[Rfam]
RNA sequence: AAAAUGCACGUUAAUUAUCCUCGGGCCCAUGGAAUAAACAAAAACCCUGAAAACUAAGUUAGCAUACCCAAGAAUGGUUCUAACACAAUUACUAACCUAUGGCUUUGAUACCAGUUGAUGGGAAAUAUCC
Number, nucleotide and partner (000 for none) at each position: 001a000002a000003a000004a000005u000006g000007c000008a000009c120010g119011u118012u117013a116014a115015u114016u113017a000018u000019c000020c000021u000022c107023g106024g105025g104026c000027c102028c101029a100030u099031g098032g097033a000034a000035u000036a000037a000038a000039c000040a000041a000042a000043a000044a000045c000046c000047c000048u085049g084050a000051a000052a079053a078054c000055u076056a075057a000058g000059u072060u071061a000062g069063c000064a000065u000066a000067c000068c000069c062070a000071a060072g059073a000074a000075u056076g055077g000078u053079u052080c000081u000082a000083a000084c049085a048086c000087a000088a000089u000090u000091a000092c000093u000094a000095a000096c000097c032098u031099a030100u029101g028102g027103c000104u025105u024106u023107g022108a000109u000110a000111c000112c000113a016114g015115u014116u013117g012118a011119u010120g009121g000122g000123a000124a000125a000126u000127a000128u000129c000130c000
RNA: MIR845_2 microRNA precursor family
Organism: Vitis rotundifolia